Background:
skipping-rope RNA: an 85-nucleotide RNA sequence. By type it is a small RNA.
RNA sequence: GGAAUUUGAGGUGGACGAUUUUGCCUUCCACACACCUAGCAAUAGGUUUAAGAGAUGCAGGGACUUGGCAGACCUGCCAAAUUCC
Number, nucleotide and partner (000 for none) at each position: 001g085002g084003a083004a082005u081006u080007u079008g078009a000010g000011g031012u030013g029014g028015a027016c000017g000018a000019u000020u000021u071022u070023g069024c068025c067026u000027u015028c014029c013030a012031c011032a000033c052034a047035c046036c045037u044038a000039g000040c000041a000042a000043u000044a037045g036046g035047u034048u000049u000050a000051a000052g033053a000054g000055a000056u000057g077058c076059a000060g075061g074062g073063a000064c000065u000066u000067g025068g024069c023070a022071g021072a000073c062074c061075u060076g058077c057078c008079a007080a006081a005082u004083u003084c002085c001